[Rfam]
RNA sequence: GGCUCGCGUCGCGGCUGGGCGCGACGUAAAGGACAAAUACCGGGGAAAUCCCCUACCCAACCCCUCCAGCCUCCCCACCGGAGUCCCGUCACUCUCCCGGGUGAUCUGUGCCAACUGGGCUGGAUUCGGGGCGGGUUGCGUGGCAUAUGCUCCAGCCACCACCAACUUGAAAUGCGACGGCCCCCGGCUGGGAUUCGCAGUCCCGGCCGAGGGCCUGACCACCGAGGAAGUAGGAGCUUCCCG
Number, nucleotide and partner (000 for none) at each position: 001g000002g000003c000004u000005c000006g000007c000008g222009u221010c000011g220012c000013g000014g000015c000016u000017g076018g075019g073020c000021g000022c000023g000024a000025c000026g000027u000028a000029a000030a000031g000032g000033a000034c000035a000036a000037a000038u000039a000040c000041c000042g000043g000044g000045g000046a000047a000048a000049u000050c000051c000052c000053c000054u000055a000056c000057c000058c000059a000060a000061c000062c000063c000064c000065u000066c000067c000068a000069g000070c000071c000072u000073c019074c000075c018076c017077a000078c000079c000080g000081g000082a000083g000084u000085c000086c000087c000088g000089u104090c103091a102092c101093u100094c099095u000096c000097c000098c000099g094100g093101g092102u091103g090104a089105u000106c000107u000108g000109u000110g000111c000112c000113a000114a000115c000116u000117g000118g000119g156120c155121u154122g153123g152124a000125u000126u000127c000128g000129g000130g000131g000132c000133g000134g000135g000136u000137u000138g000139c000140g000141u000142g000143g000144c000145a000146u000147a000148u000149g000150c000151u000152c123153c122154a121155g120156c119157c000158a000159c000160c000161a000162c000163c000164a000165a000166c000167u000168u000169g000170a000171a000172a000173u000174g000175c000176g000177a000178c000179g215180g214181c213182c212183c211184c000185c209186g208187g207188c000189u000190g204191g203192g202193a201194u000195u000196c000197g000198c000199a000200g000201u193202c192203c191204c190205g000206g000207c187208c186209g185210a000211g183212g182213g181214c180215c179216u000217g000218a000219c000220c011221a009222c008223c000224g000225a000226g241227g240228a239229a238230g237231u000232a000233g000234g000235a000236g000237c230238u229239u228240c227241c226242c000243g000
Streptomyces sRNA 4677: a 243-nucleotide RNA sequence from Streptomyces sp. R302. The family has 12 seed sequences and 563 matches in Rfam 15.1. Located in the intergenic region between anti-sigma factor SCO4677 gene and a putative regulatory protein gene SCO4676. scr4677 expression requires the SCO4677 activity and scr4677 sRNA itself seem to affect the levels of the SCO4676-associated transcripts. NCBI's taxonomy places the organism under Bacteria, Bacillati, Actinomycetota, Streptomycetaceae, Streptomyces. A search with the family's covariance model found it, with a score of 104 bits.